[Rfam]
RNA sequence: UUGCACUGCGUAUGAAAAGGCUAUUCCAAUUUUCUUCCCUGAAGAAUAAACAUGGAAUAGCCUUUGAUCGAGAGUGCAGAAAUGGAAAGCUGAACCAGAGUCGGCGGCGGCCAGACAACCGCCGAGAUGGAUCCACAGAUGAGCGCCUUCCACGGUGGUGGUGCUCCUCUACUAAUUCCAUCUCACAUUU
Numbered sequence: 001u002u003g004c005a006c007u008g009c010g011u012a013u014g015a016a017a018a019g020g021c022u023a024u025u026c027c028a029a030u031u032u033u034c035u036u037c038c039c040u041g042a043a044g045a046a047u048a049a050a051c052a053u054g055g056a057a058u059a060g061c062c063u064u065u066g067a068u069c070g071a072g073a074g075u076g077c078a079g080a081a082a083u084g085g086a087a088a089g090c091u092g093a094a095c096c097a098g099a100g101u102c103g104g105c106g107g108c109g110g111c112c113a114g115a116c117a118a119c120c121g122c123c124g125a126g127a128u129g130g131a132u133c134c135a136c137a138g139a140u141g142a143g144c145g146c147c148u149u150c151c152a153c154g155g156u157g158g159u160g161g162u163g164c165u166c167c168u169c170u171a172c173u174a175a176u177u178c179c180a181u182c183u184c185a186c187a188u189u190u
Stems, first nucleotide, its partner, number of pairs: 002078005009070002013067001016065013124184008141166007

small nucleolar RNA snoR143: a 190-nucleotide sequence from Sesamum indicum. Rfam classes the family as an H/ACA-box small nucleolar RNA. The base pairs follow the family's consensus structure, which was predicted with RNAalifold. For this family Rfam cites "Mining small RNA sequencing data: a new approach to identify small nucleolar RNAs in Arabidopsis" (Chen and Wu, Nucleic Acids Res, 2009). Rfam links the family to the GO terms RNA processing and nucleolus.